[Rfam]
RNA: Small nucleolar RNA snoR31/Z110/Z27
RNA sequence: AGUAUCAGAGGAUGAAACCUUAUAACAAUCUUAGGACACCUUCUGACACAGUGCUAUAACACUGUGAAUGAGAAGGCUUUUCUUUCUGAUGAUGCU
Numbered sequence: 001a002g003u004a005u006c007a008g009a010g011g012a013u014g015a016a017a018c019c020u021u022a023u024a025a026c027a028a029u030c031u032u033a034g035g036a037c038a039c040c041u042u043c044u045g046a047c048a049c050a051g052u053g054c055u056a057u058a059a060c061a062c063u064g065u066g067a068a069u070g071a072g073a074a075g076g077c078u079u080u081u082c083u084u085u086c087u088g089a090u091g092a093u094g095c096u
Stems, first nucleotide, its partner, number of pairs: 001096007047053002